[Rfam]
The record is a 168-nucleotide sequence from Qipengyuania atrilutea, which matches "6S / SsrS RNA" in Rfam. Rfam's curators write: E. coli 6S RNA was the first non coding RNA to be sequenced, but its function was unknown until recently.
RNA sequence: GCGGGACUGCCCGGCACGAGCCAUUGAACAUCCCUGAGGCUAUAAGCAAUCCUAGGGAGCUGUCCCUGCCCUGGUUUGCCGGUUCGCCCGGAAGGCCGGGGUAUACGGCGCCCACCUGACGUGAAGGCGUCAGAGGAUCUCCUGGCAACGACCCAUGGUGGUUCCGCC
Number, nucleotide and partner (000 for none) at each position: 001g000002c166003g165004g164005g163006a162007c161008u160009g159010c158011c157012c000013g153014g152015c000016a000017c150018g149019a000020g000021c000022c000023a000024u000025u000026g000027a000028a000029c000030a000031u137032c136033c135034c133035u132036g131037a130038g000039g128040c127041u000042a000043u000044a000045a000046g000047c000048a000049a000050u000051c000052c000053u000054a000055g113056g112057g111058a000059g109060c108061u107062g106063u105064c000065c000066c000067u000068g102069c101070c100071c099072u098073g097074g096075u000076u000077u000078g000079c091080c090081g089082g088083u000084u000085c000086g000087c000088c082089c081090g080091g079092a000093a000094g000095g000096c074097c073098g072099g071100g070101g069102u068103a000104u000105a063106c062107g061108g060109c059110g000111c057112c056113c055114a000115c000116c000117u000118g000119a000120c000121g000122u000123g000124a000125a000126g000127g040128c039129g000130u037131c036132a035133g034134a000135g033136g032137a031138u000139c000140u000141c000142c000143u000144g000145g000146c000147a000148a000149c018150g017151a000152c014153c013154c000155a000156u000157g011158g010159u009160g008161g007162u006163u005164c004165c003166g002167c000168c000
Lineage of the source: Bacteria > Pseudomonadota > Alphaproteobacteria > Sphingomonadales > Qipengyuania.
It is annotated as a non-coding RNA gene.